[Rfam]
RNA sequence: GGGUGAGGUAGAGGUCGCGGACGUCAUGAGUAUGGACAGGAAGAACGAGGGGGUUCGAUGAACUGUCUAGAAAGGGGCUUCCGCCGAAGUCGUCAGGAUCCCCUAUUCCUGGCAGACUGGGGCUGCGCUAAAUAAGCGUAGCACUGUCACCUGGUCAUGAGCCCGGUGUCCAGGUGGAGAACUAUCUCACAG
Numbered sequence: 001g002g003g004u005g006a007g008g009u010a011g012a013g014g015u016c017g018c019g020g021a022c023g024u025c026a027u028g029a030g031u032a033u034g035g036a037c038a039g040g041a042a043g044a045a046c047g048a049g050g051g052g053g054u055u056c057g058a059u060g061a062a063c064u065g066u067c068u069a070g071a072a073a074g075g076g077g078c079u080u081c082c083g084c085c086g087a088a089g090u091c092g093u094c095a096g097g098a099u100c101c102c103c104u105a106u107u108c109c110u111g112g113c114a115g116a117c118u119g120g121g122g123c124u125g126c127g128c129u130a131a132a133u134a135a136g137c138g139u140a141g142c143a144c145u146g147u148c149a150c151c152u153g154g155u156c157a158u159g160a161g162c163c164c165g166g167u168g169u170c171c172a173g174g175u176g177g178a179g180a181a182c183u184a185u186c187u188c189a190c191a192g
Stems, first nucleotide, its partner, number of pairs: 006187006017084005023078003033069007088118004092113007119145002122142008147177007
Source information
The family of this 192-nucleotide RNA from Calderihabitans maritimus is "Lysine riboswitch aptamer". Gene Ontology term of the family: lysine biosynthetic process. NCBI's taxonomy places the organism under Bacteria, Bacillati, Clostridia, Calderihabitantaceae, Calderihabitans. It scores 114 bits against the family's covariance model. Pairs were carried over by alignment from the consensus structure, which is taken from published work.